[Rfam]
RNA: Bacterial RNase P class A
Organism: Mycolicibacterium gilvum
RNA sequence: UGAGCUGGCCGGGCGGCCGCGGCACCCAGAUUCCUGGGGGUCGAGGAAAGUCCGGACUUCACAGAGCAGGGUGAUUGCUAACGGCAAUCCGAGGUGACUCGCGGGAAAGUGCCACAGAAAACAGACCGCCUGCGUCGAGUCUUCGGACGAGGCGCAGGUAAGGGUGAAAAGGUGCGGUAAGAGCGCACCAGCACUCCGGGUGACCGGGGUGGCUUGGUAAACCCCACCCGAAGCAAGGCCAAGAAGGCCGCAACCUGGUUGCGGUCGCGCAGGCGUUCGAGGGCUGCUCGCCCGAGCCUGCGGGUAGGCCGCUCGAGGUACCCGGCGACGGUGUGCCCAGAUGGAUGGUCGCCGCCUCCUCGUCAGAGAUGGCGUCGAGGAACAGAAUCCGGCUUACAGGCCGGCUCAUCCG
Numbered sequence: 001u002g003a004g005c006u007g008g009c010c011g012g013g014c015g016g017c018c019g020c021g022g023c024a025c026c027c028a029g030a031u032u033c034c035u036g037g038g039g040g041u042c043g044a045g046g047a048a049a050g051u052c053c054g055g056a057c058u059u060c061a062c063a064g065a066g067c068a069g070g071g072u073g074a075u076u077g078c079u080a081a082c083g084g085c086a087a088u089c090c091g092a093g094g095u096g097a098c099u100c101g102c103g104g105g106a107a108a109g110u111g112c113c114a115c116a117g118a119a120a121a122c123a124g125a126c127c128g129c130c131u132g133c134g135u136c137g138a139g140u141c142u143u144c145g146g147a148c149g150a151g152g153c154g155c156a157g158g159u160a161a162g163g164g165u166g167a168a169a170a171g172g173u174g175c176g177g178u179a180a181g182a183g184c185g186c187a188c189c190a191g192c193a194c195u196c197c198g199g200g201u202g203a204c205c206g207g208g209g210u211g212g213c214u215u216g217g218u219a220a221a222c223c224c225c226a227c228c229c230g231a232a233g234c235a236a237g238g239c240c241a242a243g244a245a246g247g248c249c250g251c252a253a254c255c256u257g258g259u260u261g262c263g264g265u266c267g268c269g270c271a272g273g274c275g276u277u278c279g280a281g282g283g284c285u286g287c288u289c290g291c292c293c294g295a296g297c298c299u300g301c302g303g304g305u306a307g308g309c310c311g312c313u314c315g316a317g318g319u320a321c322c323c324g325g326c327g328a329c330g331g332u333g334u335g336c337c338c339a340g341a342u343g344g345a346u347g348g349u350c351g352c353c354g355c356c357u358c359c360u361c362g363u364c365a366g367a368g369a370u371g372g373c374g375u376c377g378a379g380g381a382a383c384a385g386a387a388u389c390c391g392g393c394u395u396a397c398a399g400g401c402c403g404g405c406u407c408a409u410c411c412g
Base pairs, nucleotide, nucleotide: 001408002407003406004405005404006403007402008401009400010399011397012353013352014351015350016349017348018347020043021042022041023040025038026037027036028035048395049394050393052392053391054390055389056388057233058232059231060230064289065288066287067286069229070228071227072226073225074088075087076086077085078084089103090101091100092099093098104224105223109222110221111218112217113216126163127162128159129158130157131156132155133154134153135152136151171189172188173187174186175185176184191213192211193210194209195208196207197206198205199204237310238309239308240307269301270300271299272298273297274296281293282292283291284290317337318336319335320334321333322331323330324329